[Rfam]
RNA sequence: CUCUAUUUGGAUCAAGAUGUUUUGGAUAGAGCGAUGCGCAUCACCACCGACCAAGGGAAAUUCCAUAGGUGGAGGUAAAGGUCUUCGGGAAAAUGACGUAAUGUGUCGCCCAACUAAAGCGUUCAGGUUGGGGUCGCGACUUAAUGAUAAUAACCUCGAAGAUUGUGUGACUGGAAUGGGGGGCGAAAGCCUUUACACACAGCGCAGGA
Number, nucleotide and partner (000 for none) at each position: 001c031002u030003c029004u028005a027006u026007u025008u000009g000010g000011a000012u000013c000014a000015a000016g000017a000018u000019g000020u000021u000022u000023u000024g000025g007026a006027u005028a004029g003030a002031g001032c000033g000034a000035u000036g000037c000038g000039c000040a000041u000042c000043a000044c072045c071046a070047c069048c068049g000050a000051c000052c000053a000054a000055g000056g000057g000058a000059a000060a177061u176062u175063c174064c173065a000066u000067a000068g048069g047070u046071g045072g044073a000074g000075g000076u000077a000078a000079a000080g000081g000082u162083c161084u160085u159086c158087g157088g156089g155090a000091a000092a000093a000094u000095g000096a000097c000098g000099u000100a000101a000102u000103g000104u000105g000106u139107c138108g137109c000110c131111c130112a129113a128114c127115u126116a000117a000118a000119g000120c000121g000122u000123u000124c000125a000126g115127g114128u113129u112130g111131g110132g000133g000134u000135c000136g000137c108138g107139a106140c000141u000142u000143a000144a000145u000146g000147a000148u000149a000150a000151u000152a000153a000154c000155c089156u088157c087158g086159a085160a084161g083162a082163u202164u201165g200166u199167g198168u197169g000170a000171c000172u000173g064174g063175a062176a061177u060178g000179g000180g193181g192182g191183g190184c189185g000186a000187a000188a000189g184190c183191c182192u181193u180194u000195a000196c000197a168198c167199a166200c165201a164202g163203c000204g000205c000206a000207g000208g000209a000

Rfam assigns this 209-nucleotide sequence from Photobacterium damselae to the family "PAGEV RNA". Taxonomically the source falls in Photobacterium damselae (Bacteria, Pseudomonadota, Gammaproteobacteria, Photobacterium). The sequence is in the family's curated seed alignment. It is annotated as a small RNA.